The family of this 64-nucleotide sequence from Ictalurus punctatus is "mir-96 microRNA precursor family".
The sequence is in the family's curated seed alignment.
The base pairs follow the family's consensus structure, which was predicted with RNAalifold.
Rfam 15.1 lists 691 matches to the family in 590 species.

RNA sequence: UUUGGCACUAGCACAUUUUUGCUUUUUUAUAUAUACCUUGAGCAAUUAUGUGUAGUGCCAAUAU
Numbered sequence: 001u002u003u004g005g006c007a008c009u010a011g012c013a014c015a016u017u018u019u020u021g022c023u024u025u026u027u028u029a030u031a032u033a034u035a036c037c038u039u040g041a042g043c044a045a046u047u048a049u050g051u052g053u054a055g056u057g058c059c060a061a062u063a064u
Base pairs, nucleotide, nucleotide: 002061003060004059005058006057007056008055009054011053012052013051014050015049016048019045020044021043022042023041024040